[Rfam]
RNA sequence: CUCCGAAAGGGCAAACCCAGAGAGAUCUGGGGACGCAAAGCCACGGAUCCUUAUUCCAGGAUAGCCGGGUUGCUGAAG
Number, nucleotide and partner (000 for none) at each position: 001c078002u000003c075004c000005g000006a000007a000008a000009g000010g000011g036012c035013a000014a000015a000016c031017c030018c029019a028020g027021a026022g000023a000024g000025a000026u021027c020028u019029g018030g017031g016032g000033a000034c064035g012036c011037a000038a000039a071040g070041c069042c068043a000044c067045g066046g065047a062048u061049c060050c000051u000052u000053a000054u000055u000056c000057c000058a000059g000060g049061a048062u047063a000064g034065c046066c045067g044068g042069g041070u040071u039072g000073c000074u000075g003076a000077a000078g001
Description:
A member of the RNA family "c-di-GMP-I-GGC riboswitch aptamer" from Desulfuromusa kysingii, 78 nucleotides long. It scores 71 bits against the family's covariance model. Pairs were carried over by alignment from the consensus structure, which is taken from published work. Taxonomically the source falls in Desulfuromusa (Bacteria, Desulfuromonadia, Desulfuromonadales, Geopsychrobacteraceae).